RNA sequence: UGAUUAAGGCAGCAGGCCACAGCAGGAGCACUCACAUCACAGCCCUGUCAGAUUCCAGUGAAUCUGCAAAUUCUGCU
Number, nucleotide and partner (000 for none) at each position: 001u000002g000003a000004u000005u000006a000007a000008g000009g000010c000011a000012g000013c000014a000015g044016g043017c042018c000019a000020c000021a077022g076023c075024a074025g073026g072027a071028g040029c000030a000031c000032u000033c000034a000035c000036a000037u000038c000039a000040c028041a000042g017043c016044c015045c000046u000047g000048u000049c066050a065051g064052a063053u062054u061055c060056c000057a000058g000059u000060g055061a054062a053063u052064c051065u050066g049067c000068a000069a000070a000071u027072u026073c025074u024075g023076c022077u021
This 77-nucleotide sequence from Crocodylus porosus belongs to the Rfam family "Mammalian CPEB3 ribozyme". The family's consensus secondary structure is taken from published work.